[Rfam]
RNA sequence: AGGGCAAAUGAUGAGAUACCAGACAGGGACAUCUGCAUUCCAAUAUUGGAGUAUGAUGAUUUGUCUGUGGGAAUCUCUCUGAUGCUUG
Numbered sequence: 001a002g003g004g005c006a007a008a009u010g011a012u013g014a015g016a017u018a019c020c021a022g023a024c025a026g027g028g029a030c031a032u033c034u035g036c037a038u039u040c041c042a043a044u045a046u047u048g049g050a051g052u053a054u055g056a057u058g059a060u061u062u063g064u065c066u067g068u069g070g071g072a073a074u075c076u077c078u079c080u081g082a083u084g085c086u087u088g
Base pairs, nucleotide, nucleotide: 002087003086004085005084006083

Small nucleolar RNA R44/J54/Z268 family: an 88-nucleotide sequence from Helianthus annuus. The family has 29 seed sequences and 1,168 matches in Rfam 15.1. It scores 78 bits against the family's covariance model. The organism belongs to Helianthus, within Eukaryota. Clan: SNORD74 clan. The base pairs follow the family's consensus structure, which was predicted with PFOLD.